[Rfam]
RNA: tpke11
RNA sequence: CGUUGGCAACAAGCACGGGCGCUGGGGAAACUCUGCGCCCGUGCAAGAUGUUGAGUCAGGAAAAUACAA
Numbered sequence: 001c002g003u004u005g006g007c008a009a010c011a012a013g014c015a016c017g018g019g020c021g022c023u024g025g026g027g028a029a030a031c032u033c034u035g036c037g038c039c040c041g042u043g044c045a046a047g048a049u050g051u052u053g054a055g056u057c058a059g060g061a062a063a064a065u066a067c068a069a
Base pairs, nucleotide, nucleotide: 013044014043015042016041017040018039019038020037021036024033025032026031